[Rfam]
RNA sequence: GUGGGAACCGCACGACCGUAAAUCCGACUCGCCGGCCGGUUGGUCGGCUUGGGAUUGCGGUAGUGC
Numbered sequence: 001g002u003g004g005g006a007a008c009c010g011c012a013c014g015a016c017c018g019u020a021a022a023u024c025c026g027a028c029u030c031g032c033c034g035g036c037c038g039g040u041u042g043g044u045c046g047g048c049u050u051g052g053g054a055u056u057g058c059g060g061u062a063g064u065g066c
Stems, first nucleotide, its partner, number of pairs: 010066004015061007024053002031048007
RNA: S15-Halobacteria ribosomal protein leader